[Rfam]
RNA: MIR2118 microRNA precursor family
RNA sequence: GUCAGGAAGAGGAAGAAAGAGAGAAUCUCAGAAUUGUUGGAAUGAGAACAUGAAGGAAAGCCUAAGCUAGUGUCCCCUCUAGUAUUGGAGGUGGAAACUUAGUUUUAUGUUUUCCUGAUGCCUCUCAUUCCUAUGGUUCUUAGGUGCUCCUUCCUCUUCUUUUGGGCU
Numbered sequence: 001g002u003c004a005g006g007a008a009g010a011g012g013a014a015g016a017a018a019g020a021g022a023g024a025a026u027c028u029c030a031g032a033a034u035u036g037u038u039g040g041a042a043u044g045a046g047a048a049c050a051u052g053a054a055g056g057a058a059a060g061c062c063u064a065a066g067c068u069a070g071u072g073u074c075c076c077c078u079c080u081a082g083u084a085u086u087g088g089a090g091g092u093g094g095a096a097a098c099u100u101a102g103u104u105u106u107a108u109g110u111u112u113u114c115c116u117g118a119u120g121c122c123u124c125u126c127a128u129u130c131c132u133a134u135g136g137u138u139c140u141u142a143g144g145u146g147c148u149c150c151u152u153c154c155u156c157u158u159c160u161u162u163u164g165g166g167c168u
Stems, first nucleotide, its partner, number of pairs: 009159005015153003021149003026144003030140006037133001039131009049120003053116001055115007
Dot-bracket structure: ........(((((.(((...(((..(((.((((((.(.(((((((((.(((.(.(((((((...............................................)))))))).)))..))))))))).).)))))).)))..))).))).))))).........